[Rfam]
RNA sequence: CUCUUAUCAAGAGAGGUGGAGGGACUGGCCUGAUGAUGCCUCAGCAACCGCAUUUUGACGGUGCUAAUUCCAGCAAAGCUCGACUUUGAAAGAUAAGGA
Numbered sequence: 001c002u003c004u005u006a007u008c009a010a011g012a013g014a015g016g017u018g019g020a021g022g023g024a025c026u027g028g029c030c031u032g033a034u035g036a037u038g039c040c041u042c043a044g045c046a047a048c049c050g051c052a053u054u055u056u057g058a059c060g061g062u063g064c065u066a067a068u069u070c071c072a073g074c075a076a077a078g079c080u081c082g083a084c085u086u087u088g089a090a091a092g093a094u095a096a097g098g099a
Base pairs, nucleotide, nucleotide: 002098003097004096005095006094007093008092013042014041015040016039017038021031022030023029025073026072027071028070043065044064045063046062048061049060069091074088075087076086077085078084
The record is a 99-nucleotide RNA sequence from Niallia endozanthoxylica, which matches "SAM riboswitch aptamer (S box leader)" in Rfam. NCBI's taxonomy places the organism under Bacteria, Bacilli, Caryophanales, Bacillaceae, Niallia. The match comes from Rfam's covariance-model search (83 bits). The family's consensus secondary structure is taken from published work.